[Rfam]
RNA sequence: CUGAGGCACCAUCUCAGGGGGGCCCAGGCAGCAUCUGGUCUCCCUUCCGGGGGACAAGACAUCCCUGUUUAAUAUUUAAACAGCAGUGUUCCCA
Numbered sequence: 001c002u003g004a005g006g007c008a009c010c011a012u013c014u015c016a017g018g019g020g021g022g023c024c025c026a027g028g029c030a031g032c033a034u035c036u037g038g039u040c041u042c043c044c045u046u047c048c049g050g051g052g053g054a055c056a057a058g059a060c061a062u063c064c065c066u067g068u069u070u071a072a073u074a075u076u077u078a079a080a081c082a083g084c085a086g087u088g089u090u091c092c093c094a
Stems, first nucleotide, its partner, number of pairs: 005024003009020002012018001034059002038055007065083008